[Rfam]
RNA: isrL Hfq binding RNA
RNA sequence: UUUGGCGACCUCUAUUUGUUCAUUCUGUGCGAGCAGUUUGCCGACGGCUUCGCGAAUAGAAGGAUGCCAGCUAACGGCGUGAUUGACCGCGUCAUUAAGCGUCAGGUUGCCCGGCGCGGCGGCGCUGAGCGGCAACUCAGCGGCGGAGCCAUCCAGCGAAGGAAGCAUCUGGUCCGUUGCUAAUCCUUCGGAUGUAAUCAUUGGCGGCGCUUCUGCUCCCCGGGGCUGGUGAUGAAACAAAGCAAAUGCCAGUACGAUGGCGACAGGCGCGACUCUUCCCAUAGUUUAUCCCUUUUAAAUAUCACCGCUUGUUGCCCCGAACGUCGUGGCGUUCGGGGCUUUUUU
Numbered sequence: 001u002u003u004g005g006c007g008a009c010c011u012c013u014a015u016u017u018g019u020u021c022a023u024u025c026u027g028u029g030c031g032a033g034c035a036g037u038u039u040g041c042c043g044a045c046g047g048c049u050u051c052g053c054g055a056a057u058a059g060a061a062g063g064a065u066g067c068c069a070g071c072u073a074a075c076g077g078c079g080u081g082a083u084u085g086a087c088c089g090c091g092u093c094a095u096u097a098a099g100c101g102u103c104a105g106g107u108u109g110c111c112c113g114g115c116g117c118g119g120c121g122g123c124g125c126u127g128a129g130c131g132g133c134a135a136c137u138c139a140g141c142g143g144c145g146g147a148g149c150c151a152u153c154c155a156g157c158g159a160a161g162g163a164a165g166c167a168u169c170u171g172g173u174c175c176g177u178u179g180c181u182a183a184u185c186c187u188u189c190g191g192a193u194g195u196a197a198u199c200a201u202u203g204g205c206g207g208c209g210c211u212u213c214u215g216c217u218c219c220c221c222g223g224g225g226c227u228g229g230u231g232a233u234g235a236a237a238c239a240a241a242g243c244a245a246a247u248g249c250c251a252g253u254a255c256g257a258u259g260g261c262g263a264c265a266g267g268c269g270c271g272a273c274u275c276u277u278c279c280c281a282u283a284g285u286u287u288a289u290c291c292c293u294u295u296u297a298a299a300u301a302u303c304a305c306c307g308c309u310u311g312u313u314g315c316c317c318c319g320a321a322c323g324u325c326g327u328g329g330c331g332u333u334c335g336g337g338g339c340u341u342u343u344u345u
Stems, first nucleotide, its partner, number of pairs: 003272001005270002008195002011192003017035005036057006043051002059189007066133003070100003074096001076093006102128004106123006139181008148173004152163003198235006205228004211222001242268002247262004314339011